This 103-nucleotide RNA sequence belongs to the Rfam family "mir-354 microRNA precursor family". The base pairs follow the family's consensus structure, which was predicted with RNAalifold. A search with the family's covariance model found it, with a score of 75 bits.
RNA sequence: CAGAGCCGACUAAGCGAUUUGGCGCGGCCACGGACGGGUAACAGCCGGACGUUCAUCACAACUUCUAUCUUUUACCUUGUUUGUUGCUGCUCCUUAUGGUUUU
Numbered sequence: 001c002a003g004a005g006c007c008g009a010c011u012a013a014g015c016g017a018u019u020u021g022g023c024g025c026g027g028c029c030a031c032g033g034a035c036g037g038g039u040a041a042c043a044g045c046c047g048g049a050c051g052u053u054c055a056u057c058a059c060a061a062c063u064u065c066u067a068u069c070u071u072u073u074a075c076c077u078u079g080u081u082u083g084u085u086g087c088u089g090c091u092c093c094u095u096a097u098g099g100u101u102u103u
Base pairs, nucleotide, nucleotide: 002103003102004101005100006099007098008097021093022092024090025089026088027087028086030084031083032082033081034080035079036078037076038075039074040073043070044069048057049056